[Rfam]
RNA sequence: AGCUGCUCCAGUAGCCCACUCGUUAGGUAUGUUGCCUUCCCCUGUGAGAACGUGGGUUCGCUCCGCUGGCCGGCAAUUGCAUAGGAAAAGUUGCAGAUCGGGCUGUUGGGUUACCCGGAGGGGGGGGGCGCAUUUUUUUUAUAAAAUUUUUAUAU
Numbered sequence: 001a002g003c004u005g006c007u008c009c010a011g012u013a014g015c016c017c018a019c020u021c022g023u024u025a026g027g028u029a030u031g032u033u034g035c036c037u038u039c040c041c042c043u044g045u046g047a048g049a050a051c052g053u054g055g056g057u058u059c060g061c062u063c064c065g066c067u068g069g070c071c072g073g074c075a076a077u078u079g080c081a082u083a084g085g086a087a088a089a090g091u092u093g094c095a096g097a098u099c100g101g102g103c104u105g106u107u108g109g110g111u112u113a114c115c116c117g118g119a120g121g122g123g124g125g126g127g128g129c130g131c132a133u134u135u136u137u138u139u140u141a142u143a144a145a146a147u148u149u150u151u152a153u154a155u
Stems, first nucleotide, its partner, number of pairs: 002129003006125004011114005017108002020105001022103003026099003030095003034091002037089002041085006048078002052074002055071003059065002115121002
Shown here is a 155-nucleotide RNA sequence from Plasmodium falciparum, a member of the family "Plasmodium RNA of unknown function RUF6-5".
Rfam 15.1 lists 127 matches to the family in 20 species.
The literature on the family includes a 2007 paper in RNA by Chakrabarti et al., "Structural RNAs of known and unknown function identified in malaria parasites by comparative genomics and RNA analysis".
The organism belongs to Plasmodium falciparum, within Eukaryota.
Rfam classes the family as a small RNA.
The base pairs follow the family's consensus structure, which was predicted with WAR.